[Rfam]
RNA sequence: AAACAACCCCUUAUGUAUUGGAUCUUUGACAGUUUUGACCCCAAUGCCACUUUGGACUUAGUCUUCGCUGACGUGACACCCAAAAUGGUCGACAUGUGGCACCUCACUUAAGGGAUGUGGGUGCCACGUCAGCGAAGACUAAGUCAAAAGUGGCCUUGGGGGCAAAAACUGCCAAAGAUCGAAUACAUAGGGGGCUACUU
Numbered sequence: 001a002a003a004c005a006a007c008c009c010c011u012u013a014u015g016u017a018u019u020g021g022a023u024c025u026u027u028g029a030c031a032g033u034u035u036u037g038a039c040c041c042c043a044a045u046g047c048c049a050c051u052u053u054g055g056a057c058u059u060a061g062u063c064u065u066c067g068c069u070g071a072c073g074u075g076a077c078a079c080c081c082a083a084a085a086u087g088g089u090c091g092a093c094a095u096g097u098g099g100c101a102c103c104u105c106a107c108u109u110a111a112g113g114g115a116u117g118u119g120g121g122u123g124c125c126a127c128g129u130c131a132g133c134g135a136a137g138a139c140u141a142a143g144u145c146a147a148a149a150g151u152g153g154c155c156u157u158g159g160g161g162g163c164a165a166a167a168a169c170u171g172c173c174a175a176a177g178a179u180c181g182a183a184u185a186c187a188u189a190g191g192g193g194g195c196u197a198c199u200u
Stems, first nucleotide, its partner, number of pairs: 001200002005196001007194002012189008021180008030171007037163001039161006071129002074126002077123005
RNA: MIR2619 microRNA precursor family